[Rfam]
RNA sequence: GAGUCUAACAUGUGCGCGAGUCAUUGGGAUGCAAAAACCUAAAGGCGAAAUGAAAGUGAAGAUCGGACUUUGUGCCGAUCGAGGGAGGAUGGGCCGCGUUACUAUGCGGCCCCGCACUCCCGGGGCGUCUCGUUCUCAUUGCGAGAAGAGGCGCACCUAGAGCGUACACGUUGGGACCCGAAAGAUGGUGAACUAUGCCUGGUCAGGACGAAGUCAGGGGAAACCCUGAUGGAGGUCCGUAGCGAUUCUGACGUGCAAAUCGAUCGUCGGAACUGGGUAUAGGGGCGAAAGACUAAUCGAACCAUCUAGUAGCUGGUU
Numbered sequence: 001g002a003g004u005c006u007a008a009c010a011u012g013u014g015c016g017c018g019a020g021u022c023a024u025u026g027g028g029a030u031g032c033a034a035a036a037a038c039c040u041a042a043a044g045g046c047g048a049a050a051u052g053a054a055a056g057u058g059a060a061g062a063u064c065g066g067a068c069u070u071u072g073u074g075c076c077g078a079u080c081g082a083g084g085g086a087g088g089a090u091g092g093g094c095c096g097c098g099u100u101a102c103u104a105u106g107c108g109g110c111c112c113c114g115c116a117c118u119c120c121c122g123g124g125g126c127g128u129c130u131c132g133u134u135c136u137c138a139u140u141g142c143g144a145g146a147a148g149a150g151g152c153g154c155a156c157c158u159a160g161a162g163c164g165u166a167c168a169c170g171u172u173g174g175g176a177c178c179c180g181a182a183a184g185a186u187g188g189u190g191a192a193c194u195a196u197g198c199c200u201g202g203u204c205a206g207g208a209c210g211a212a213g214u215c216a217g218g219g220g221a222a223a224c225c226c227u228g229a230u231g232g233a234g235g236u237c238c239g240u241a242g243c244g245a246u247u248c249u250g251a252c253g254u255g256c257a258a259a260u261c262g263a264u265c266g267u268c269g270g271a272a273c274u275g276g277g278u279a280u281a282g283g284g285g286c287g288a289a290a291g292a293c294u295a296a297u298c299g300a301a302c303c304a305u306c307u308a309g310u311a312g313c314u315g316g317u318u
Stems, first nucleotide, its partner, number of pairs: 005174005011168007020046003025041004030036001050057002083121005091112007123157002125154003128150001130148001134144002177316002180313001184306006193282011204270001206238004213230007242267004247263002250261002284294002
RNA: Eukaryotic large subunit ribosomal RNA, nucleotides 930 to 1247
Organism: Apis florea